[Rfam]
RNA sequence: CUUCUUCGCAUCCUCGCGACUAAUGACAACCGACACCCCCAUGGGUGAAGCCUCUCAUUAGCCGCGCGAACCUCUGCAAUGAAGAUCAUUUAUAGCAACAAUACAAUAGUUUCCAGUGAAUUGCUGCCGUCUGGUUGAAAAAAGGGGCCAUCAGGCCCCUUUUU
Numbered sequence: 001c002u003u004c005u006u007c008g009c010a011u012c013c014u015c016g017c018g019a020c021u022a023a024u025g026a027c028a029a030c031c032g033a034c035a036c037c038c039c040c041a042u043g044g045g046u047g048a049a050g051c052c053u054c055u056c057a058u059u060a061g062c063c064g065c066g067c068g069a070a071c072c073u074c075u076g077c078a079a080u081g082a083a084g085a086u087c088a089u090u091u092a093u094a095g096c097a098a099c100a101a102u103a104c105a106a107u108a109g110u111u112u113c114c115a116g117u118g119a120a121u122u123g124c125u126g127c128c129g130u131c132u133g134g135u136u137g138a139a140a141a142a143a144g145g146g147g148c149c150a151u152c153a154g155g156c157c158c159c160u161u162u163u164u
Stems, first nucleotide, its partner, number of pairs: 001084004006079001008077003015068004020061007090119002144159006
This 164-nucleotide RNA from Enterobacteriaceae bacterium RIT714 belongs to the Rfam family "SraG RNA".
It scores 135 bits against the family's covariance model.
Its family is annotated with sRNA-mediated gene silencing and mRNA binding in the Gene Ontology.
Lineage of the source: Bacteria > Pseudomonadati > Pseudomonadota > Enterobacterales > Enterobacteriaceae.
About the family: This RNA was discovered in E. coli during a large scale screen. Evidence was found for specific cleavage of this RNA.